[Rfam]
RNA sequence: ACUGCACACAAACCCAAAGGCUAUUACCAUCAUUUGUAAUAUUCUUUUUAAUUGUGUGCACAAAUUAAAACAGUACCUUGUCGCCUUCUACAUGCUGCUGUGCUGCUGGAAGUGAAUUCAAGGUUCAACAUUU
Number, nucleotide and partner (000 for none) at each position: 001a000002c000003u060004g059005c058006a057007c056008a055009c054010a000011a000012a000013c000014c000015c000016a000017a000018a000019g044020g043021c000022u041023a040024u039025u038026a037027c036028c000029a000030u000031c000032a000033u000034u000035u000036g027037u026038a025039a024040u023041a022042u000043u020044c019045u000046u000047u000048u000049u000050a000051a000052u000053u000054g009055u008056g007057u006058g005059c004060a003061c000062a000063a000064a000065u000066u000067a000068a000069a000070a000071c000072a000073g126074u000075a124076c123077c122078u121079u120080g000081u000082c000083g000084c000085c112086u111087u110088c109089u108090a107091c000092a000093u000094g103095c102096u000097g000098c000099u000100g000101u000102g095103c094104u000105g000106c000107u090108g089109g088110a087111a086112g085113u000114g000115a000116a000117u000118u000119c000120a079121a078122g077123g076124u075125u000126c073127a000128a000129c000130a000131u000132u000133u000
The family of this 133-nucleotide sequence from Clupea harengus is "Small nucleolar RNA SNORA68". From the family's description: U68 is a member of the H/ACA class of small nucleolar RNAs (snoRNAs) which act as guides in the the modification of uridines to pseudouridines. The literature on the family includes a 1997 paper in Genes Dev by Ganot et al., "The family of box ACA small nucleolar RNAs is defined by an evolutionarily conserved secondary structure and ubiquitous sequence elements essential for RNA accumulation". The source organism's lineage runs through Eukaryota, Opisthokonta, Euteleostomi, Actinopterygii and Clupea. The base pairs follow the family's consensus structure, which was predicted with PFOLD. The match comes from Rfam's covariance-model search (62 bits). Rfam classes the family as an H/ACA-box small nucleolar RNA.